[Rfam]
RNA sequence: GGCAGUAGAAGCUCUACUGGACGCGUGCAGGACCCGGGGGCAGUUCCCGGCGCCUCCACCACCAGCGCACCUUCCGGCAAGGAGGCGGGAUAAAAACCGCUGCAGAUCUGUCGGAGCACAAACCGGGGUUGGCGUCGGCGCGGCGCAAUGACCUGGGGGCGAGCCUUUCGUGGUGCGUUGCUGAUGGGGGCGAUUCAGGAUCGACUGGCGUGAAGAGGACAAGUUGCUGCUCGGCGGGAUGGCCACCGUUAUCGGCGCAAGAUCGACAGUUGCCAACAACAACUUCGCUCCGGUUGCCGUCGCUGCGUAA
Numbered sequence: 001g002g003c004a005g006u007a008g009a010a011g012c013u014c015u016a017c018u019g020g021a022c023g024c025g026u027g028c029a030g031g032a033c034c035c036g037g038g039g040g041c042a043g044u045u046c047c048c049g050g051c052g053c054c055u056c057c058a059c060c061a062c063c064a065g066c067g068c069a070c071c072u073u074c075c076g077g078c079a080a081g082g083a084g085g086c087g088g089g090a091u092a093a094a095a096a097c098c099g100c101u102g103c104a105g106a107u108c109u110g111u112c113g114g115a116g117c118a119c120a121a122a123c124c125g126g127g128g129u130u131g132g133c134g135u136c137g138g139c140g141c142g143g144c145g146c147a148a149u150g151a152c153c154u155g156g157g158g159g160c161g162a163g164c165c166u167u168u169c170g171u172g173g174u175g176c177g178u179u180g181c182u183g184a185u186g187g188g189g190g191c192g193a194u195u196c197a198g199g200a201u202c203g204a205c206u207g208g209c210g211u212g213a214a215g216a217g218g219a220c221a222a223g224u225u226g227c228u229g230c231u232c233g234g235c236g237g238g239a240u241g242g243c244c245a246c247c248g249u250u251a252u253c254g255g256c257g258c259a260a261g262a263u264c265g266a267c268a269g270u271u272g273c274c275a276a277c278a279a280c281a282a283c284u285u286c287g288c289u290c291c292g293g294u295u296g297c298c299g300u301c302g303c304u305g306c307g308u309a310a
Stems, first nucleotide, its partner, number of pairs: 001231005017218001024210003028207003034050005051192007232248003

The family of this 310-nucleotide RNA sequence is "permuted transfer-messenger RNA".
Its family is annotated with RNA catabolic process in the Gene Ontology.
By type it is a non-coding RNA gene.